[Rfam]
RNA sequence: GUGCAAACCUUCCAGCGUGGGGAGGUCUGUCGUGGCCCCUCCAUUCCUACAGAGUUUUGCCAGAGCAACCCUGGGAUGGUUUGAGGCCCCUCCCUGCUUAACCCCGGGGAGGGGUUAUAGAAAUCCCAGACAGUC
Numbered sequence: 001g002u003g004c005a006a007a008c009c010u011u012c013c014a015g016c017g018u019g020g021g022g023a024g025g026u027c028u029g030u031c032g033u034g035g036c037c038c039c040u041c042c043a044u045u046c047c048u049a050c051a052g053a054g055u056u057u058u059g060c061c062a063g064a065g066c067a068a069c070c071c072u073g074g075g076a077u078g079g080u081u082u083g084a085g086g087c088c089c090c091u092c093c094c095u096g097c098u099u100a101a102c103c104c105c106g107g108g109g110a111g112g113g114g115u116u117a118u119a120g121a122a123a124u125c126c127c128a129g130a131c132a133g134u135c
Base pairs, nucleotide, nucleotide: 003060004059005058006057007056009054018043019042020041024037025036026035027034072128073127074126075125076124087114088113089112090111091110092109094107095106096105

Description
Shown here is a 135-nucleotide sequence from Upupa epops, a member of the family "Small nucleolar RNA SNORA9". NCBI's taxonomy places the organism under Eukaryota, Eumetazoa, Vertebrata, Neoaves, Upupa. A search with the family's covariance model found it, with a score of 110 bits. The family's consensus secondary structure was predicted with PFOLD. Clan: SNORA9 clan.